[Rfam]
The record is a 66-nucleotide RNA sequence from Lysinibacillus sp. BF-4, which matches "Pistol ribozyme" in Rfam. The literature on the family includes a 2015 paper in Nat Chem Biol by Weinberg et al., "New classes of self-cleaving ribozymes revealed by comparative genomics analysis". The family's consensus secondary structure is taken from published work. Gene Ontology term of the family: catalytic activity. The match comes from Rfam's covariance-model search (69 bits).

RNA sequence: ACUCGGCUGAGCGAGGAUAAAUAGGCAUUAGGCUCAGGGCGUUCCCUCGCUACGAGGGAGGUUGCA
Dot-bracket structure: .[[[..(((((.]]].........[[[....[)))))..].((((((((...))))))))..]]].